[Rfam]
Nucleotides: 101
Base pairs, nucleotide, nucleotide: 018087019086020085021084022083023082024081025080029048030047031046032045033044034043035042057077059075060074061073062072063071
Number, partner (000 for none) and nucleotide at each position: 001000u002000a003000c004000a005000a006000c007000a008000a009000a010000a011000g012000c013000a014000u015000a016000u017000a018087c019086u020085u021084u022083c023082g024081u025080a026000u027000a028000a029048u030047c031046u032045c033044a034043a035042g036000a037000a038000u039000u040000g041000g042035c043034u044033u045032g046031a047030g048029a049000g050000u051000c052000u053000c054000u055000a056000c057077u058000a059075g060074a061073u062072c063071a064000c065000c066000g067000u068000a069000a070000a071063u072062g073061a074060u075059c076000a077057g078000g079000c080025u081024a082023c083022g084021a085020g086019g087018g088000g089000u090000g091000a092000a093000a094000g095000a096000a097000a098000g099000c100000c101000a
This 101-nucleotide RNA sequence from Pristimantibacillus lignocellulolyticus belongs to the Rfam family "Purine riboswitch aptamer". Its family is annotated with purine nucleobase biosynthetic process in the Gene Ontology. Lineage of the source: Bacteria > Bacillota > Bacilli > Caryophanales > Pristimantibacillus (SeqCode). Clan: Purine riboswitches. A search with the family's covariance model found it, with a score of 75 bits.